This 72-nucleotide RNA from Cotesia congregata belongs to the Rfam family "tRNA".
About the family: Transfer RNA (tRNA) molecules are approximately 80 nucleotides in length.
[Rfam]
RNA sequence: GCCCCUAUGGUCUAGUGGCUAGGAUAGCUGGCUUUCACCCAGUAGGCCGAGGUUCGAUUCCCCGUAGGGGUA
Numbered sequence: 001g002c003c004c005c006u007a008u009g010g011u012c013u014a015g016u017g018g019c020u021a022g023g024a025u026a027g028c029u030g031g032c033u034u035u036c037a038c039c040c041a042g043u044a045g046g047c048c049g050a051g052g053u054u055c056g057a058u059u060c061c062c063c064g065u066a067g068g069g070g071u072a
Base pairs, nucleotide, nucleotide: 001071002070003069004068005067006066007065010025011024012023013022027043028042029041030040031039048064049063051061052060